[Rfam]
RNA sequence: AGGAAACAUGGAGAGUUUUUCCAUGUUUCCUGAUACAAUCUUCCUACAGAAAUUAAAAAAAAAAACUUCUGCUGUUUUUUCCUGCUUGUAGCUGCUGAACAUGAGCUACAAGUUUCAAAAAUCAUCAGGCAGACAC
Number, nucleotide and partner (000 for none) at each position: 001a031002g030003g029004a000005a027006a026007c025008a024009u023010g022011g021012a000013g000014a000015g000016u000017u000018u000019u000020u000021c011022c010023a009024u008025g007026u006027u005028u000029c003030c002031u001032g000033a000034u000035a000036c000037a000038a000039u000040c000041u000042u000043c000044c000045u000046a000047c000048a000049g000050a000051a000052a000053u000054u000055a000056a000057a000058a000059a000060a000061a000062a000063a000064a000065a000066c000067u000068u129069c128070u127071g000072c000073u000074g000075u000076u000077u000078u000079u000080u000081c000082c000083u000084g113085c112086u111087u110088g109089u108090a107091g106092c000093u104094g000095c000096u000097g000098a000099a000100c000101a000102u000103g000104a093105g000106c091107u090108a089109c088110a087111a086112g085113u084114u000115u000116c000117a000118a000119a000120a000121a000122u000123c000124a000125u000126c000127a070128g069129g068130c000131a000132g000133a000134c000135a000136c000